[Rfam]
The family of this 116-nucleotide RNA from Mucilaginibacter galii is "SAM riboswitch aptamer (S box leader)". The source organism's lineage runs through Bacteria, Pseudomonadati, Sphingobacteriia, Sphingobacteriales and Mucilaginibacter.
RNA sequence: GAUUUAUAAAGAAGCGGCGAGAGAUCAGGCUCAACGACCCGCUGGCAACCCUCCGAUAGGCGGAGAAGGUGCCAAUUCCUGUCCCGGUUGGCCAUUACAGCCGGGGAAUAUAAGUU
Numbered sequence: 001g002a003u004u005u006a007u008a009a010a011g012a013a014g015c016g017g018c019g020a021g022a023g024a025u026c027a028g029g030c031u032c033a034a035c036g037a038c039c040c041g042c043u044g045g046c047a048a049c050c051c052u053c054c055g056a057u058a059g060g061c062g063g064a065g066a067a068g069g070u071g072c073c074a075a076u077u078c079c080u081g082u083c084c085c086g087g088u089u090g091g092c093c094a095u096u097a098c099a100g101c102c103g104g105g106g107a108a109u110a111u112a113a114g115u116u
Base pairs, nucleotide, nucleotide: 001116002115003114004113005112006111007110008109013043014042015041016040017039021032022031023030026081027080028079029078044073045072046071047070049069050068051065052064053063054062077108083105084104085103086102087101088100089099090098
A search with the family's covariance model found it, with a score of 76 bits.